[Rfam]
RNA sequence: UUUCCCAUGUGACUGCCACGCUUUCUCCUAGUAGAUUCCUGUGGCUAUGCUCAUGGGAUAGAGCAGCAUUGCCAUGAUCUGAAGGGGGAGGAUCUGUGUGUGUCCUUCUUCUGUAUGAAAUGGCUAAACAGGAAAAA
Numbered sequence: 001u002u003u004c005c006c007a008u009g010u011g012a013c014u015g016c017c018a019c020g021c022u023u024u025c026u027c028c029u030a031g032u033a034g035a036u037u038c039c040u041g042u043g044g045c046u047a048u049g050c051u052c053a054u055g056g057g058a059u060a061g062a063g064c065a066g067c068a069u070u071g072c073c074a075u076g077a078u079c080u081g082a083a084g085g086g087g088g089a090g091g092a093u094c095u096g097u098g099u100g101u102g103u104c105c106u107u108c109u110u111c112u113g114u115a116u117g118a119a120a121u122g123g124c125u126a127a128a129c130a131g132g133a134a135a136a137a
Stems, first nucleotide, its partner, number of pairs: 004057004016044004071124004089112004
Small nucleolar RNA SNORA29: a 137-nucleotide RNA from Cnephaeus nilssonii. For this family Rfam cites "RNomics: an experimental approach that identifies 201 candidates for novel, small, non-messenger RNAs in mouse" (Huttenhofer et al., EMBO J, 2001). The base pairs follow the family's consensus structure, which was predicted with PFOLD. Gene Ontology terms of the family: RNA processing and nucleolus. Clan: SNORA20 clan. It is annotated as an H/ACA-box small nucleolar RNA. Rfam's curators write: ACA29 is a member of the H/ACA class of snoRNA that guide the sites of modification of uridines to pseudouridines.